[Rfam]
Shown here is a 75-nucleotide RNA sequence from Sphingobium sp. SCG-1, a member of the family "Makes More Granules Regulator RNA (mmgR)". Lineage of the source: Bacteria > Pseudomonadati > Alphaproteobacteria > Sphingobiaceae > Sphingobium. SuhB later renamed mmgR (makes more granules regulator) was a putative non-coding RNA found multiple times in the Agrobacterium tumefaciens genome and related alpha-proteobacteria. Other non-coding RNAs uncovered in the same analysis include: speF, ybhL, metA, and serC.Several studies inSinorhizobium meliloti showed that suhB element is indeed a non-coding RNA:firstly it was detected on Northern blot and called Sm8RNA, secondly in an RNAseq study referred to as SmelC689.The mutant phenotype's (strain lacking the small RNA) cytoplasm contains higher content of polyhydroxybutyrate (PBH)storage granules than wild type strain. The sRNA is required to limit the PBH intracellular accumulation when the nitrogen-fixing Sinorhizobium meliloti is under condition of surplus carbon in relation to nitrogen. It has been renamed to mmgR. Further study confirmed that mmgR fine-tunes the regulation of PBH storage.Northern blot confirmed the expression of the sRNA in other rhizobia species. The pairing is the family consensus, mapped onto this sequence. Its family is annotated with protein binding, DNA-templated transcription, termination and response to nitrogen compound in the Gene Ontology. The match comes from Rfam's covariance-model search (50 bits).
Nucleotides: 075
Base pairs, nucleotide, nucleotide: 008018009017010016011015039060040059041058042057043056044055045054046053047052
Number, partner (000 for none) and nucleotide at each position: 001000g002000g003000g004000c005000u006000g007000u008018g009017c010016c011015u012000u013000u014000c015011a016010g017009g018008c019000a020000u021000c022000c023000u024000c025000u026000c027000c028000u029000a030000a031000a032000a033000c034000u035000c036000g037000g038000c039060g040059g041058g042057c043056u044055g045054g046053u047052c048000u049000u050000c051000g052047g053046a054045c055044c056043g057042g058041c059040c060039c061000c062000u063000u064000u065000u066000u067000u068000u069000g070000u071000a072000u073000c074000u075000u